[Rfam]
RNA: Lysine riboswitch aptamer
Organism: Qingrenia yutianensis
RNA sequence: ACUAAUGGUAGAGGUGCGGUGUUUAUCAGUAAUUCGGGCAUAUAACAAAGGCGUUAACCCGAAUGAAAGGAAAUAUCGCCGAAACAUACGGUAUUUGCCUUGAAAUCUGUGUGUUGGGCUGCAGCAGAAUAUGUUGCAGACUGUCACUUUUGUGAAGCGCUAUCCAUAGU
Numbered sequence: 001a002c003u004a005a006u007g008g009u010a011g012a013g014g015u016g017c018g019g020u021g022u023u024u025a026u027c028a029g030u031a032a033u034u035c036g037g038g039c040a041u042a043u044a045a046c047a048a049a050g051g052c053g054u055u056a057a058c059c060c061g062a063a064u065g066a067a068a069g070g071a072a073a074u075a076u077c078g079c080c081g082a083a084a085c086a087u088a089c090g091g092u093a094u095u096u097g098c099c100u101u102g103a104a105a106u107c108u109g110u111g112u113g114u115u116g117g118g119c120u121g122c123a124g125c126a127g128a129a130u131a132u133g134u135u136g137c138a139g140a141c142u143g144u145c146a147c148u149u150u151u152g153u154g155a156a157g158c159g160c161u162a163u164c165c166a167u168a169g170u
Stems, first nucleotide, its partner, number of pairs: 007164005016079009032064007083115009094104001116142002119139008144155004